The record is an 81-nucleotide RNA from Sphaeramia orbicularis, which matches "mir-7 microRNA precursor family" in Rfam.

RNA sequence: CCACAGCGACCUGGAAGACUAGUGAUUUUGUUGUUGUGUGUUCACGCUGACAACAAGUCAUUGUCUCCCUGACUGCUGUGA
Numbered sequence: 001c002c003a004c005a006g007c008g009a010c011c012u013g014g015a016a017g018a019c020u021a022g023u024g025a026u027u028u029u030g031u032u033g034u035u036g037u038g039u040g041u042u043c044a045c046g047c048u049g050a051c052a053a054c055a056a057g058u059c060a061u062u063g064u065c066u067c068c069c070u071g072a073c074u075g076c077u078g079u080g081a
Stems, first nucleotide, its partner, number of pairs: 001080001004078002007075002011071001013069002016066004022061007030054006
NCBI's taxonomy places the organism under Eukaryota, Actinopterygii, Teleostei, Osteoglossocephalai, Sphaeramia. The base pairs follow the family's consensus structure, which was predicted with PFOLD. For this family Rfam cites "Identification of novel genes coding for small expressed RNAs" (Lagos-Quintana et al., Science, 2001).